This 96-nucleotide RNA sequence from Coprococcus sp. CAG:782 belongs to the Rfam family "ZMP/ZTP riboswitch aptamer (pfl RNA motif)". Lineage of the source: Bacteria > Bacillati > Clostridia > Lachnospirales > Coprococcus. A search with the family's covariance model found it, with a score of 50 bits. Gene Ontology terms of the family: regulation of purine nucleotide biosynthetic process and one-carbon metabolic process.
[Rfam]
RNA sequence: AGUUCGGUACACGACUGGCGGAGACAGUCUCAGGGCUGAUAGGAUAUACCUAUAGGGAGUGUGCCAUAACAAGAGCCGACCGCCUGGGCAGACAAA
Numbered sequence: 001a002g003u004u005c006g007g008u009a010c011a012c013g014a015c016u017g018g019c020g021g022a023g024a025c026a027g028u029c030u031c032a033g034g035g036c037u038g039a040u041a042g043g044a045u046a047u048a049c050c051u052a053u054a055g056g057g058a059g060u061g062u063g064c065c066a067u068a069a070c071a072a073g074a075g076c077c078g079a080c081c082g083c084c085u086g087g088g089c090a091g092a093c094a095a096a
Stems, first nucleotide, its partner, number of pairs: 003068001006065007015056002017084005040052004075089003